[Rfam]
Nucleotides: 083
Stems, first nucleotide, its partner, number of pairs: 024033002049063006
Number, partner (000 for none) and nucleotide at each position: 001000u002000a003000a004000u005000g006000g007000a008000a009000a010000u011000g012000a013000a014000a015000a016000a017000g018000g019000g020000u021000a022000g023000u024033u025032g026000c027000g028000u029000c030000a031000a032025c033024a034000a035000c036000u037000a038000c039000c040000c041000u042000u043000g044000g045000u046000a047000g048000a049063a050062c051061c052060g053059u054058u055000u056000a057000a058054g059053a060052c061051g062050g063049u064000g065000a066000c067000u068000u069000c070000a071000u072000a073000g074000u075000u076000a077000c078000g079000a080000a081000u082000a083000a
The family of this 83-nucleotide RNA sequence from Streptococcus danieliae is "RNA anti-toxin A". For this family Rfam cites "Abundance of type I toxin-antitoxin systems in bacteria: searches for new candidates and discovery of novel families" (Fozo et al., Nucleic Acids Res, 2010). The family has 16 seed sequences and 190 matches in Rfam 15.1. The match comes from Rfam's covariance-model search (63 bits).